The family of this 75-nucleotide sequence from Oncorhynchus mykiss is "Small nucleolar RNA SNORD2". The organism belongs to Oncorhynchus, within Eukaryota. A search with the family's covariance model found it, with a score of 55 bits. On this family, see Zhou et al., Gene 2004: "Identification of a novel box C/D snoRNA from mouse nucleolar cDNA library". The family's RNA type in Rfam is C/D-box small nucleolar RNA.
RNA sequence: GAGUGACAAGAUGCCAUACCAUCUUUCGGGACUGACACAGCAAUGGAGAACUACUUUCUGUAUUACUGAUCAUUU
Dot-bracket structure: ((((((...............................................................))))))